[Rfam]
RNA sequence: UUCCCAAAAGCUGCUUAUUUGGGGAAGGUUUUUUAAUUAGCCUUUUCUCAAUUAAAAGCUAUCUGGGAGAGAAAAGACCACACUCCACAGUGAACUACAUUGUUGUAGUCCAUUACUUACUUUGUGGCCAACAGU
Numbered sequence: 001u002u003c004c005c006a007a008a009a010g011c012u013g014c015u016u017a018u019u020u021g022g023g024g025a026a027g028g029u030u031u032u033u034u035a036a037u038u039a040g041c042c043u044u045u046u047c048u049c050a051a052u053u054a055a056a057a058g059c060u061a062u063c064u065g066g067g068a069g070a071g072a073a074a075a076g077a078c079c080a081c082a083c084u085c086c087a088c089a090g091u092g093a094a095c096u097a098c099a100u101u102g103u104u105g106u107a108g109u110c111c112a113u114u115a116c117u118u119a120c121u122u123u124g125u126g127g128c129c130a131a132c133a134g135u
Stems, first nucleotide, its partner, number of pairs: 004066003008062001012061002015058002020051001023048004027042004076129001078127005089114004094109006

The family of this 135-nucleotide RNA from Sarcophilus harrisii is "Small nucleolar RNA SNORA4". NCBI's taxonomy places the organism under Eukaryota, Opisthokonta, Eumetazoa, Chordata, Sarcophilus. By type it is an H/ACA-box small nucleolar RNA. Rfam's curators write: ACA4 is a member of the H/ACA class of snoRNA that guide the sites of modification of uridines to pseudouridines. Clan: SNORA4 clan. Gene Ontology terms of the family: nucleolus and RNA processing. A search with the family's covariance model found it, with a score of 73 bits.